Record summary: Rfam assigns this 137-nucleotide sequence from Enteractinococcus coprophilus to the family "FMN riboswitch aptamer (RFN element)". It scores 76 bits against the family's covariance model.

RNA sequence: GCUGUGUUCCGGGGUCGGUGAGAAUCCGAACCGGCGGUGACAGUCCGCGACCCCCGCGCCUGCGGGGCUGAUCCAGUGAAAUUCUGGUACCGACGGUGAUAAGCGAAAUGCUUUAGUCCGGAUGAGAGGAACGCGCC
Numbered sequence: 001g002c003u004g005u006g007u008u009c010c011g012g013g014g015u016c017g018g019u020g021a022g023a024a025u026c027c028g029a030a031c032c033g034g035c036g037g038u039g040a041c042a043g044u045c046c047g048c049g050a051c052c053c054c055c056g057c058g059c060c061u062g063c064g065g066g067g068c069u070g071a072u073c074c075a076g077u078g079a080a081a082u083u084c085u086g087g088u089a090c091c092g093a094c095g096g097u098g099a100u101a102a103g104c105g106a107a108a109u110g111c112u113u114u115a116g117u118c119c120g121g122a123u124g125a126g127a128g129g130a131a132c133g134c135g136c137c
Base pairs, nucleotide, nucleotide: 003135004134005133006132007131008130009129010128016028017027018026032092033091034048035047036046037045043090044089052067053066073087074086075085076084094120095119096118
The source organism's lineage runs through Bacteria, Actinomycetota, Micrococcales, Micrococcaceae and Enteractinococcus.